[Rfam]
RNA sequence: AUGCGAUGAAGAGACUGAUGAUCACGAAAACCCUGACGUCUUAUCAUUGACACCUAAAGACCCAUCGGAUUCCGAAUCGUUAGGAAAACGGGGUCGUCGAUGAGUGUGGGCGAGCGACUAAUCUUCUCUCUGAGCAUU
Numbered sequence: 001a002u003g004c005g006a007u008g009a010a011g012a013g014a015c016u017g018a019u020g021a022u023c024a025c026g027a028a029a030a031c032c033c034u035g036a037c038g039u040c041u042u043a044u045c046a047u048u049g050a051c052a053c054c055u056a057a058a059g060a061c062c063c064a065u066c067g068g069a070u071u072c073c074g075a076a077u078c079g080u081u082a083g084g085a086a087a088a089c090g091g092g093g094u095c096g097u098c099g100a101u102g103a104g105u106g107u108g109g110g111c112g113a114g115c116g117a118c119u120a121a122u123c124u125u126c127u128c129u130c131u132g133a134g135c136a137u138u
Stems, first nucleotide, its partner, number of pairs: 001137004